[Rfam]
RNA sequence: UUCUCCUCGUGUUCACUGUGUUGGCUUAAUGUGAUUUUAUCAUAAGGCACGCGGUGAAUGCCAAGAGUG
Numbered sequence: 001u002u003c004u005c006c007u008c009g010u011g012u013u014c015a016c017u018g019u020g021u022u023g024g025c026u027u028a029a030u031g032u033g034a035u036u037u038u039a040u041c042a043u044a045a046g047g048c049a050c051g052c053g054g055u056g057a058a059u060g061c062c063a064a065g066a067g068u069g
Stems, first nucleotide, its partner, number of pairs: 003067003009061008018052003025047003030044005

This 69-nucleotide sequence from Bemisia tabaci belongs to the Rfam family "mir-124 microRNA precursor family". The literature on the family includes a 2003 paper in Genome Biol by Lai et al., "Computational identification of Drosophila microRNA genes". Taxonomically the source falls in Bemisia (Eukaryota, Metazoa, Bilateria, Hemiptera). Rfam 15.1 lists 2,215 matches to the family in 905 species. A search with the family's covariance model found it, with a score of 57 bits. Pairs were carried over by alignment from the consensus structure, which was predicted with PFOLD.